Saccharopolyspora sRNA 350: a 504-nucleotide sequence.
It scores 154 bits against the family's covariance model.
It is annotated as an antisense RNA.
Rfam links the family to the GO term regulation of secondary metabolite biosynthetic process.
The base pairs follow the family's consensus structure, which was predicted with RNAfold.
The literature on the family includes a 2013 paper in PLoS One by Liu et al., "Prediction and characterization of small non-coding RNAs related to secondary metabolites in Saccharopolyspora erythraea".
[Rfam]
Nucleotides: 504
Base pairs, nucleotide, nucleotide: 005390006389007388009386010385013382014381017328019326020325021323022322023321025319026317027316034313035312036311037310038309040307044305045304047302048301049300053299056233059230061228064225065224066112068110069109076104078103079102080101081100083098084097086095119222120221121220124217128213130211131210132207134205135204136203139200140199141198145196151192155190156189157188159186161185162184164178168174169173237295238294241291242290243289244288245287246286251284252283253282254281255280257278258277259276261272263270330343331342332341353379354378356376357375358374362372363371364370392432393431394430395429396428398426400424402422404419406417408416438477439476440475441474443472444471445470449465450464451463452462453461478503479502481500482499483498485497486496489493
Number, partner (000 for none) and nucleotide at each position: 001000c002000c003000g004000u005390a006389c007388g008000g009386a010385g011000u012000g013382c014381u015000c016000c017328c018000a019326g020325g021323u022322c023321g024000c025319g026317u027316c028000c029000g030000g031000c032000g033000a034313c035312a036311g037310c038309a039000g040307c041000g042000c043000c044305g045304c046000c047302u048301c049300g050000c051000c052000c053299a054000g055000a056233u057000g058000g059230u060000c061228g062000c063000c064225g065224u066112c067000c068110g069109c070000g071000a072000g073000u074000a075000c076104g077000c078103c079102g080101a081100g082000a083098a084097c085000c086095g087000u088000u089000u090000c091000g092000u093000c094000u095086c096000c097084g098083u099000a100081c101080u102079u103078g104076c105000c106000g107000g108000c109069g110068c111000c112066g113000a114000c115000c116000c117000g118000g119222u120221u121220g122000a123000g124217c125000u126000u127000g128213c129000c130211g131210u132207g133000c134205g135204c136203g137000a138000c139200g140199a141198g142000g143000a144000c145196g146000a147000c148000c149000c150000g151192g152000u153000c154000g155190g156189c157188c158000g159186g160000c161185g162184c163000a164178c165000c166000c167000u168174g169173c170000u171000c172000c173169g174168c175000c176000a177000g178164g179000a180000g181000g182000u183000c184162g185161c186159c187000g188157g189156g190155c191000g192151c193000g194000u195000g196145c197000u198141c199140u200139u201000c202000c203136u204135g205134u206000a207132c208000g209000a210131a211130c212000c213128g214000g215000u216000c217124g218000g219000c220121c221120a222119g223000g224065g225064c226000c227000u228061c229000c230059a231000g232000c233056g234000c235000c236000g237295c238294c239000g240000g241291g242290u243289c244288g245287u246286c247000g248000a249000a250000g251284u252283c253282g254281c255280g256000c257278a258277g259276c260000g261272g262000c263270g264000g265000c266000a267000g268000c269000u270263c271000c272261c273000g274000c275000a276259g277258c278257u279000c280255c281254g282253c283252g284251g285000g286246g287245a288244u289243g290242a291241c292000c293000c294238g295237g296000a297000c298000g299053u300049c301048g302047g303000a304045g305044c306000c307040g308000g309038u310037g311036c312035u313034g314000g315000u316027g317026a318000a319025u320000u321023c322022g323021a324000c325020c326019c327000g328017g329000c330343c331342g332341u333000c334000c335000c336000c337000g338000a339000g340000c341332g342331u343330g344000u345000g346000g347000g348000u349000c350000a351000g352000g353379c354378g355000c356376c357375g358374g359000u360000u361000g362372a363371c364370g365000c366000g367000g368000u369000a370364c371363g372362u373000a374358c375357c376356g377000c378354c379353g380000g381014a382013g383000a384000c385010c386009u387000g388007c389006g390005u391000c392432c393431a394430g395429g396428g397000c398426a399000g400424c401000a402422c403000g404419c405000g406417c407000a408416g409000c410000a411000g412000c413000c414000a415000g416408c417406g418000g419404g420000a421000g422402g423000a424400g425000a426398u427000c428396c429395c430394c431393u432392g433000c434000a435000u436000c437000u438477g439476c440475g441474g442000c443472a444471c445470g446000g447000u448000c449465u450464u451463g452462g453461u454000c455000g456000u457000g458000g459000u460000g461453g462452c463451c464450a465449g466000a467000u468000u469000g470445c471444g472443u473000g474441c475440c476439g477438c478503g479502g480000c481500u482499g483498u484000c485497g486496c487000c488000a489493g490000g491000c492000u493489c494000g495000u496486g497485c498483g499482c500481g501000c502479c503478u504000g